RNA: DUF3800-I RNA
Organism: Pseudoselenomonas ruminantium
Nucleotides: 115
Base pairs, nucleotide, nucleotide: 008025009024010023011022012020013019014018029082030081031080032079033078034077039074040073041072042051043050044049055071056070057069058068059067060066083105084104085103086102087101088100089099090098091097
Number, partner (000 for none) and nucleotide at each position: 001000u002000g003000a004000u005000g006000g007000u008025a009024c010023a011022g012020a013019c014018a015000a016000u017000g018014u019013g020012u021000a022011c023010u024009g025008u026000u027000u028000a029082c030081g031080c032079u033078g034077g035000g036000a037000u038000a039074g040073c041072g042051g043050u044049c045000u046000a047000u048000u049044g050043a051042c052000u053000a054000a055071g056070c057069g058068u059067a060066u061000g062000u063000u064000a065000a066060g067059u068058a069057c070056g071055c072041c073040g074039u075000a076000c077034c078033c079032a080031g081030u082029g083105g084104g085103g086102c087101c088100g089099u090098c091097c092000g093000a094000g095000a096000a097091g098090g099089g100088c101087g102086g103085c104084c105083u106000u107000u108000u109000a110000c111000a112000u113000u114000u115000a